Small nucleolar RNA Z279/snoR105/snoR108: a 106-nucleotide RNA from Solanum lycopersicum. The sequence is in the family's curated seed alignment. About the family: This family includes the plant snoRNAs known as Z279, snoR105 and snoR108. The base pairs follow the family's consensus structure, which was predicted with PFOLD. Its Rfam clan is "snoU13 clan". The source organism's lineage runs through Eukaryota, Viridiplantae, eudicotyledons, Solanales and Solanum subgen. Lycopersicon. The literature on the family includes a 2002 paper in Curr Biol by Marker et al., "Experimental RNomics: identification of 140 candidates for small non-messenger RNAs in the plant Arabidopsis thaliana".

RNA sequence: GGGAUGUGAUGAGUGGUCAAUACUCGCAUUAAAAUAUGUGAGAAGGGUGUCCAGGCUUAGCCUUUUACGACAAUUUGGGCGCUCUCAAUUUUACCAAUCUGAUCCC
Numbered sequence: 001g002g003g004a005u006g007u008g009a010u011g012a013g014u015g016g017u018c019a020a021u022a023c024u025c026g027c028a029u030u031a032a033a034a035u036a037u038g039u040g041a042g043a044a045g046g047g048u049g050u051c052c053a054g055g056c057u058u059a060g061c062c063u064u065u066u067a068c069g070a071c072a073a074u075u076u077g078g079g080c081g082c083u084c085u086c087a088a089u090u091u092u093a094c095c096a097a098u099c100u101g102a103u104c105c106c
Stems, first nucleotide, its partner, number of pairs: 001106004014096004023042005044085006050078002065073001